[Rfam]
RNA: MIR6288 microRNA precursor family
Organism: Prunus persica
Nucleotides: 092
Base pairs, nucleotide, nucleotide: 002091004089005088006087007086008085009084010083011082012081013080014079015078016077017076018075019074020073021072022071023070024069025068028065029064031062032061033060034059035058036057037056038055
Number, partner (000 for none) and nucleotide at each position: 001000u002091c003000c004089a005088a006087a007086c008085u009084a010083g011082u012081c013080a014079u015078u016077u017076g018075u019074u020073a021072u022071u023070u024069u025068c026000c027000a028065a029064u030000c031062g032061g033060u034059u035058c036057u037056u038055a039000g040000u041000g042000u043000g044000u045000u046000a047000a048000a049000a050000u051000u052000u053000u054000a055038u056037a057036a058035g059034a060033a061032c062031u063000a064029a065028u066000a067000a068025g069024a070023a071022a072021a073020u074019g075018a076017c077016a078015a079014g080013u081012g082011a083010c084009u085008a086007g087006u088005u089004u090000u091002g092000g